[Rfam]
The family of this 117-nucleotide RNA sequence from Massilia glaciei is "Group II catalytic intron D1-D4-2". Rfam links the family to the GO term Group II intron splicing. A search with the family's covariance model found it, with a score of 114 bits. Taxonomically the source falls in Massilia (Bacteria, Pseudomonadati, Burkholderiales, Oxalobacteraceae).

RNA sequence: GGGAGCAGGCCUCCCGAAGUCGGCUUGCAGGAGCUGGCUUCAAACCGCCCAGUGCCGCUGCGAUCAAAAGUCGUGGUGGUGAGCGACUGGGGAAAAGGCAUCGCAAAGAUGUCAGGU
Numbered sequence: 001g002g003g004a005g006c007a008g009g010c011c012u013c014c015c016g017a018a019g020u021c022g023g024c025u026u027g028c029a030g031g032a033g034c035u036g037g038c039u040u041c042a043a044a045c046c047g048c049c050c051a052g053u054g055c056c057g058c059u060g061c062g063a064u065c066a067a068a069a070g071u072c073g074u075g076g077u078g079g080u081g082a083g084c085g086a087c088u089g090g091g092g093a094a095a096a097g098g099c100a101u102c103g104c105a106a107a108g109a110u111g112u113c114a115g116g117u
Base pairs, nucleotide, nucleotide: 001015002014003013004012005011016041017040018039019038020037021036023034024033025032026031046116048091049090050089051088052087053086054080055079057077058076059075061073062072063071064070097113098112099111100110101109102108